[Rfam]
RNA sequence: UGGCUGCGAUAAACAUUCAUUGCUGUCGGUGGGUUUUGAGUGAGAACAGCUCGCUGACCAAUGAAUGCACACUGCGGUACA
Numbered sequence: 001u002g003g004c005u006g007c008g009a010u011a012a013a014c015a016u017u018c019a020u021u022g023c024u025g026u027c028g029g030u031g032g033g034u035u036u037u038g039a040g041u042g043a044g045a046a047c048a049g050c051u052c053g054c055u056g057a058c059c060a061a062u063g064a065a066u067g068c069a070c071a072c073u074g075c076g077g078u079a080c081a
Stems, first nucleotide, its partner, number of pairs: 001081002004077005014067009025058007033050003
This 81-nucleotide RNA from Megalops atlanticus belongs to the Rfam family "mir-181 microRNA precursor family". Pairs were carried over by alignment from the consensus structure, which was predicted with PFOLD. For this family Rfam cites "microRNAs: tiny regulators with great potential" (Ambros, Cell, 2001). The match comes from Rfam's covariance-model search (66 bits). The source organism's lineage runs through Eukaryota, Bilateria, Deuterostomia, Elopocephala and Megalops.